[Rfam]
The record is a 117-nucleotide sequence from Camelimonas lactis, which matches "ALIL pseudoknot" in Rfam. By type it is a cis-regulatory element. The base pairs follow the family's consensus structure, which is taken from published work.
RNA sequence: CGCCUGUUUUGCGCAGGCGGAGCUCGACCGCCCAUUCAGACGAUGAUCGCGUUCAUUGACGAUCACCGUGAAGCGCAUGGGGUCGAGCCGAUCUGCAGGGUGCUGCCGAUCGCCCCG
Numbered sequence: 001c002g003c004c005u006g007u008u009u010u011g012c013g014c015a016g017g018c019g020g021a022g023c024u025c026g027a028c029c030g031c032c033c034a035u036u037c038a039g040a041c042g043a044u045g046a047u048c049g050c051g052u053u054c055a056u057u058g059a060c061g062a063u064c065a066c067c068g069u070g071a072a073g074c075g076c077a078u079g080g081g082g083u084c085g086a087g088c089c090g091a092u093c094u095g096c097a098g099g100g101u102g103c104u105g106c107c108g109a110u111c112g113c114c115c116c117g
Stems, first nucleotide, its partner, number of pairs: 016032005078117005089112002092109002095106004
It scores 119 bits against the family's covariance model.